This 154-nucleotide sequence from Amborella trichopoda belongs to the Rfam family "MIR8565 microRNA precursor family". Pairs were carried over by alignment from the consensus structure, which was predicted with RNAalifold.

[Rfam]
RNA sequence: CUCACACCCAUGUGUGUAGGACCCCAAAAGAUCACCAUUAAAUUUGGCACAGAUCUAUAUAAAAGUUAAGUCCCACACACAUGUGAUAACUUUUAUAGAGAUCUGUGCCAAAUUUAAUGGUGAUCCUUUGAGGUUCUACACACAUGGGUGUGGG
Numbered sequence: 001c002u003c004a005c006a007c008c009c010a011u012g013u014g015u016g017u018a019g020g021a022c023c024c025c026a027a028a029a030g031a032u033c034a035c036c037a038u039u040a041a042a043u044u045u046g047g048c049a050c051a052g053a054u055c056u057a058u059a060u061a062a063a064a065g066u067u068a069a070g071u072c073c074c075a076c077a078c079a080c081a082u083g084u085g086a087u088a089a090c091u092u093u094u095a096u097a098g099a100g101a102u103c104u105g106u107g108c109c110a111a112a113u114u115u116a117a118u119g120g121u122g123a124u125c126c127u128u129u130g131a132g133g134u135u136c137u138a139c140a141c142a143c144a145u146g147g148g149u150g151u152g153g154g
Base pairs, nucleotide, nucleotide: 002153003152004151005150006149007148008147009146010145011144012143013142015140016139017138018137019136020135021134022133023132025130026129027128028127030125031124032123034121035120036119037118038117039116040115041114042113043112044111045110046109047108048107049106050105051104052103053102054101055100056099058097059096060095061094062093063092064091065090066089067088068087069082